[Rfam]
RNA: int-alpA RNA
Organism: Candidatus Accumulibacter cognatus
RNA sequence: GCCGCGCCUAUCCCGAGGCCGAUCACCGAGGGAGAAAACCGGGUUCCUUCACCCGGCUGGCGCGGCACCCCAAACGAAGG
Numbered sequence: 001g002c003c004g005c006g007c008c009u010a011u012c013c014c015g016a017g018g019c020c021g022a023u024c025a026c027c028g029a030g031g032g033a034g035a036a037a038a039c040c041g042g043g044u045u046c047c048u049u050c051a052c053c054c055g056g057c058u059g060g061c062g063c064g065g066c067a068c069c070c071c072a073a074a075c076g077a078a079g080g
Stems, first nucleotide, its partner, number of pairs: 001066008011033004039056005046080005